The family of this 88-nucleotide RNA from Thermosinus carboxydivorans is "c-di-GMP-I riboswitch aptamer". GEMM was predicted in a large-scale screen for bacterial structured RNA regulatory elements. The family's consensus secondary structure is taken from published work. Taxonomically the source falls in Thermosinus carboxydivorans (Bacteria, Bacillati, Bacillota, Negativicutes).
RNA sequence: ACAUAAGUUGGGCAAACCCGGCGAAAGCCGGGGACGCAAAGCCAUGGGUCUAAGGACAUUGGGUGUCUAUGAUCGCCAGGUUGCCAAU
Number, nucleotide and partner (000 for none) at each position: 001a000002c000003a000004u000005a000006a000007g000008u000009u000010g000011g000012g037013c036014a000015a000016a000017c032018c031019c030020g029021g028022c027023g000024a000025a000026a000027g022028c021029c020030g019031g018032g017033g000034a000035c000036g013037c012038a000039a000040a082041g081042c080043c079044a000045u078046g077047g076048g073049u072050c071051u000052a000053a000054g000055g067056a066057c065058a064059u000060u000061g000062g000063g000064u058065g057066u056067c055068u000069a000070u000071g050072a049073u048074c000075g000076c047077c046078a045079g043080g042081u041082u040083g000084c000085c000086a000087a000088u000